The record is a 58-nucleotide RNA from Agromyces mariniharenae, which matches "msiK RNA" in Rfam. The family's RNA type in Rfam is cis-regulatory element. The family's consensus secondary structure is taken from published work.

RNA sequence: CGCACUCAUCCAUUCACUACGGAUCGUCCGGCACGUACCUGCCGGUGAAGGAGAAGCA
Numbered sequence: 001c002g003c004a005c006u007c008a009u010c011c012a013u014u015c016a017c018u019a020c021g022g023a024u025c026g027u028c029c030g031g032c033a034c035g036u037a038c039c040u041g042c043c044g045g046u047g048a049a050g051g052a053g054a055a056g057c058a
Stems, first nucleotide, its partner, number of pairs: 010051002013049004028045006